[Rfam]
Nucleotides: 060
Stems, first nucleotide, its partner, number of pairs: 002057006009050002013046005019041004
Number, partner (000 for none) and nucleotide at each position: 001000u002057u003056c004055c005054c006053u007052u008000u009050g010049u011000c012000a013046u014045c015044c016043u017042a018000u019041g020040c021039c022038u023000g024000a025000g026000a027000a028000u029000a030000u031000a032000u033000g034000a035000a036000g037000g038022a039021g040020g041019c042017u043016g044015g045014g046013a047000a048000g049010g050009c051000a052007a053006a054005g055004g056003g057002a058000c059000g060000u